Record summary: A member of the RNA family "Small nucleolar RNA SNORA32" from Regulus satrapa, 120 nucleotides long. Rfam classes the family as an H/ACA-box small nucleolar RNA. Rfam's curators write: ACA32 is a member of the H/ACA class of snoRNA that guide the sites of modification of uridines to pseudouridines. Lineage of the source: Eukaryota > Bilateria > Teleostomi > Australaves > Regulus. Gene Ontology terms of the family: RNA processing and nucleolus. Pairs were carried over by alignment from the consensus structure, which was predicted with RNAfold.

RNA sequence: UGGUCAUUACCAAGGCUGCUGGGAUGCUGUUUCUGGUGAGCUGUGGAGGUGACCGUAAAGCAAGUCCACCAGACUCUCGCAUUGCCACAUGAUGUGGCACAAAGUCUGGUGGGAAUAAAG
Numbered sequence: 001u002g003g004u005c006a007u008u009a010c011c012a013a014g015g016c017u018g019c020u021g022g023g024a025u026g027c028u029g030u031u032u033c034u035g036g037u038g039a040g041c042u043g044u045g046g047a048g049g050u051g052a053c054c055g056u057a058a059a060g061c062a063a064g065u066c067c068a069c070c071a072g073a074c075u076c077u078c079g080c081a082u083u084g085c086c087a088c089a090u091g092a093u094g095u096g097g098c099a100c101a102a103a104g105u106c107u108g109g110u111g112g113g114a115a116u117a118a119a120g
Stems, first nucleotide, its partner, number of pairs: 003053005010046003026041003065113004072106004083099003